[Rfam]
RNA sequence: UGCCGGUGAUGCAUCAAAAUUGUCCGUACCAUCUGAGAUACUUCUCUAUGAUGUUACCAAAACUUAUACAGAUUCUGAGGCGU
Numbered sequence: 001u002g003c004c005g006g007u008g009a010u011g012c013a014u015c016a017a018a019a020u021u022g023u024c025c026g027u028a029c030c031a032u033c034u035g036a037g038a039u040a041c042u043u044c045u046c047u048a049u050g051a052u053g054u055u056a057c058c059a060a061a062a063c064u065u066a067u068a069c070a071g072a073u074u075c076u077g078a079g080g081c082g083u
Stems, first nucleotide, its partner, number of pairs: 001082004

The record is an 83-nucleotide sequence from Salix brachista, which matches "small nucleolar RNA snoR117" in Rfam. Rfam 15.1 lists 419 matches to the family in 211 species. Pairs were carried over by alignment from the consensus structure, which was predicted with RNAalifold.